A member of the RNA family "Chloroflexus-1 RNA" from Chloroflexus aurantiacus, 171 nucleotides long. Lineage of the source: Bacteria > Chloroflexia > Chloroflexales > Chloroflexaceae > Chloroflexus aurantiacus. It is annotated as a small RNA. The family's consensus secondary structure is taken from published work.
[Rfam]
Nucleotides: 171
Stems, first nucleotide, its partner, number of pairs: 005028004010023004038059008073095008098118008137164005143159002146157003
Number, partner (000 for none) and nucleotide at each position: 001000c002000c003000g004000u005028u006027c007026c008025c009000g010023u011022a012021u013020c014000a015000a016000u017000g018000g019000c020013g021012a022011u023010a024000a025008g026007g027006g028005a029000a030000a031000u032000u033000c034000a035000u036000g037000u038059u039058c040057a041056u042055a043054c044053a045052c046000c047000c048000g049000g050000u051000u052045g053044u054043g055042u056041a057040u058039g059038a060000a061000u062000g063000u064000g065000c066000g067000c068000u069000c070000c071000g072000c073095a074094a075093c076092a077091g078090g079089a080088c081000c082000a083000c084000g085000c086000u087000c088080g089079u090078c091077c092076u093075g094074u095073u096000u097000c098118u099117c100116g101115u102114c103113a104112c105111a106000u107000g108000c109000a110000c111105u112104g113103u114102g115101a116100c117099g118098a119000u120000g121000c122000g123000a124000u125000u126000c127000c128000g129000u130000g131000u132000u133000g134000a135000a136000u137164g138163g139162c140161g141160u142000u143159c144158g145000u146157c147156c148155c149000c150000u151000g152000u153000u154000u155148g156147g157146g158144c159143g160141a161140c162139g163138c164137c165000c166000g167000g168000a169000g170000g171000g